Rfam assigns this 86-nucleotide RNA from Cuscuta campestris to the family "Small nucleolar RNA snoR14". The match comes from Rfam's covariance-model search (48 bits). The family's RNA type in Rfam is C/D-box small nucleolar RNA.

RNA sequence: GUGAGCUGAUGGUAGAAUUCAUUUGUGUGUCAAUCCUUUUGAAUGAUGUUUAAUAAGAAUCCCAAGUCCCAACAGGUUCUAGUCAC
Numbered sequence: 001g002u003g004a005g006c007u008g009a010u011g012g013u014a015g016a017a018u019u020c021a022u023u024u025g026u027g028u029g030u031c032a033a034u035c036c037u038u039u040u041g042a043a044u045g046a047u048g049u050u051u052a053a054u055a056a057g058a059a060u061c062c063c064a065a066g067u068c069c070c071a072a073c074a075g076g077u078u079c080u081a082g083u084c085a086c
Stems, first nucleotide, its partner, number of pairs: 001086004